[Rfam]
Nucleotides: 075
Stems, first nucleotide, its partner, number of pairs: 010025004016066003020062002043056004
Number, partner (000 for none) and nucleotide at each position: 001000g002000a003000c004000u005000g006000g007000g008000a009000c010025g011024g012023c013022a014000a015000u016066g017065g018064a019000u020062u021061c022013u023012g024011c025010c026000g027000g028000g029000c030000c031000u032000c033000g034000u035000g036000c037000c038000g039000a040000a041000c042000c043056g044055c045054c046053u047000c048000c049000c050000g051000a052000u053046g054045g055044g056043c057000u058000g059000a060000u061021g062020a063000c064018u065017c066016c067000u068000a069000c070000u071000c072000c073000a074000u075000c
Shown here is a 75-nucleotide sequence from Novosphingobium sp., a member of the family "Fluoride riboswitch aptamer (crcB RNA motif)". It scores 44 bits against the family's covariance model. The organism belongs to Novosphingobium, within Bacteria.